A member of the RNA family "T-box leader" from Intestinibacter bartlettii, 230 nucleotides long. Lineage of the source: Bacteria > Bacillota > Peptostreptococcales > Intestinibacter > Intestinibacter bartlettii. The family's consensus secondary structure is taken from published work. A search with the family's covariance model found it, with a score of 122 bits. By type it is a cis-regulatory leader. Uncharged tRNA acts as the effector for transcription antitermination of genes in the T-box leader family. T-boxes are found upstream of many aminoacyl-tRNA synthetase genes and some amino acid biosynthetic genes usually in Gram-positive bacteria. The anticodon of a specific tRNA base pairs to a specifier sequence within the T-box motif, and the NCCA acceptor tail of the tRNA base pairs to a conserved bulge in the T-box antiterminator hairpin.

RNA sequence: ACAAAAGCGAUGAUUAGGCGAGUAAAUUUAGUUCGGUUACUAGAGAUGGAAAUUCGUGGGCUGAAAGAUUUCCUUAACUUGAGAAAUUGAAAACUACCUAGGAGCUUCUAUCUGAAGUUAUCUUUAUAGAUUUUAGUAAGAUUUGACGUUUUGCUUACGUUACAAGUUCAAGUGGAUUUAUUUUAAAUCAAUUUGGGUGGAACCGCGGGAAUUAUGCUCUCGUCCCUAUU
Numbered sequence: 001a002c003a004a005a006a007g008c009g010a011u012g013a014u015u016a017g018g019c020g021a022g023u024a025a026a027u028u029u030a031g032u033u034c035g036g037u038u039a040c041u042a043g044a045g046a047u048g049g050a051a052a053u054u055c056g057u058g059g060g061c062u063g064a065a066a067g068a069u070u071u072c073c074u075u076a077a078c079u080u081g082a083g084a085a086a087u088u089g090a091a092a093a094c095u096a097c098c099u100a101g102g103a104g105c106u107u108c109u110a111u112c113u114g115a116a117g118u119u120a121u122c123u124u125u126a127u128a129g130a131u132u133u134u135a136g137u138a139a140g141a142u143u144u145g146a147c148g149u150u151u152u153g154c155u156u157a158c159g160u161u162a163c164a165a166g167u168u169c170a171a172g173u174g175g176a177u178u179u180a181u182u183u184u185a186a187a188u189c190a191a192u193u194u195g196g197g198u199g200g201a202a203c204c205g206c207g208g209g210a211a212u213u214a215u216g217c218u219c220u221c222g223u224c225c226c227u228a229u230u
Base pairs, nucleotide, nucleotide: 007105008104015100016099017098018097025088026087027086028085029084036078037077038076049072050071051070052069053068054067108145110142111141112140113139147159148158149157175189176188177187178186179185180184195226196225197224205223206222207221208220209219
Dot-bracket structure: ......((......((((......(((((......(((..........((((((............))))))...))).....)))))........))))...))..(.((((.........................))))..).(((.......)))...............((((((...)))))).....(((.......(((((.........))))))))....